[Rfam]
RNA sequence: UUAACUCGAAUAUGUAUGAAGUUGUGGAACGUUUGCCUACGUUUGUCAUUAGGGGCGCUGUUCCCACUCCAUACAAAUUAGAGUUA
Number, nucleotide and partner (000 for none) at each position: 001u000002u000003a000004a000005c000006u000007c000008g000009a079010a078011u077012a000013u075014g074015u073016a072017u000018g070019a000020a068021g067022u066023u000024g000025u000026g064027g063028a062029a061030c060031g059032u000033u000034u000035g000036c054037c053038u052039a000040c000041g049042u048043u000044u000045g000046u000047c000048a042049u041050u000051a000052g038053g037054g036055g000056c000057g000058c000059u031060g030061u029062u028063c027064c026065c000066a022067c021068u020069c000070c018071a000072u016073a015074c014075a013076a000077a011078u010079u009080a000081g000082a000083g000084u000085u000086a000
RNA: mir-2807 microRNA precursor family
Organism: Bombyx mori